[Rfam]
The family of this 180-nucleotide RNA from Sphingopyxis lindanitolerans is "Manganese Mn2+ riboswitch aptamer (yybP-ykoY)". A search with the family's covariance model found it, with a score of 48 bits. Rfam describes the family as follows. This RNA was originally discovered in E. coli during a large scale screen and was named SraF. The family was later found to exist upstream of related families of protein genes in many bacteria, including the the yybP and ykoK genes in B. subtilis.
RNA sequence: GCCUCCGUCAUCUGGGGAGUAGCCAGCCGUCCUUCGGGACGGGCCAUCGCGUCAACAUACUCGGUCGAGAGGCCGUGGUGCGGUGGAAACGGGAUACCGUUUGGGCGAGACCAAUGGCAUCGAACCUUCUGCCCGGGCCGGGCGGCAAGGCGCGAUGUCCGUUGGAGUUCGCUCGCCGCC
Numbered sequence: 001g002c003c004u005c006c007g008u009c010a011u012c013u014g015g016g017g018a019g020u021a022g023c024c025a026g027c028c029g030u031c032c033u034u035c036g037g038g039a040c041g042g043g044c045c046a047u048c049g050c051g052u053c054a055a056c057a058u059a060c061u062c063g064g065u066c067g068a069g070a071g072g073c074c075g076u077g078g079u080g081c082g083g084u085g086g087a088a089a090c091g092g093g094a095u096a097c098c099g100u101u102u103g104g105g106c107g108a109g110a111c112c113a114a115u116g117g118c119a120u121c122g123a124a125c126c127u128u129c130u131g132c133c134c135g136g137g138c139c140g141g142g143c144g145g146c147a148a149g150g151c152g153c154g155a156u157g158u159c160c161g162u163u164g165g166a167g168u169u170c171g172c173u174c175g176c177c178g179c180c
Base pairs, nucleotide, nucleotide: 027042028041029040045085046084047083048082049081050080051079052078053077054076062075063074064073065072066071091180092179